c-di-GMP-I riboswitch aptamer: an 87-nucleotide RNA sequence from Paenibacillus foliorum.
RNA sequence: CAACGAUAAUAGCAAACCUGUCGAAAGACAGGGACGCAAAGCCACAGGUCUAAGGGAAAUCAUUCCUAGGAUAGCUGGGUUGCCGAA
Numbered sequence: 001c002a003a004c005g006a007u008a009a010u011a012g013c014a015a016a017c018c019u020g021u022c023g024a025a026a027g028a029c030a031g032g033g034a035c036g037c038a039a040a041g042c043c044a045c046a047g048g049u050c051u052a053a054g055g056g057a058a059a060u061c062a063u064u065c066c067u068a069g070g071a072u073a074g075c076u077g078g079g080u081u082g083c084c085g086a087a
Stems, first nucleotide, its partner, number of pairs: 012037002017032006040081004045077003048072003055066004
Rfam 15.1 lists 5,092 matches to the family in 1,772 species.